This 66-nucleotide RNA sequence from Mizuhopecten yessoensis belongs to the Rfam family "mir-2 microRNA precursor family".
Nucleotides: 066
Stems, first nucleotide, its partner, number of pairs: 005060009014050005020044003025041003
Number, partner (000 for none) and nucleotide at each position: 001000g002000g003000a004000g005060u006059c007058g008057u009056c010055a011054a012053a013052g014050u015049g016048g017047u018046u019000u020044u021043g022042a023000u024000g025041u026040g027039u028000g029000u030000a031000a032000a033000u034000g035000a036000u037000u038000c039027a040026u041025a042022u043021c044020a045000c046018a047017g048016c049015c050014a051000g052013c053012u054011u055010u056009g057008a058007u059006g060005a061000g062000c063000u064000c065000u066000u

The organism belongs to Mizuhopecten, within Eukaryota.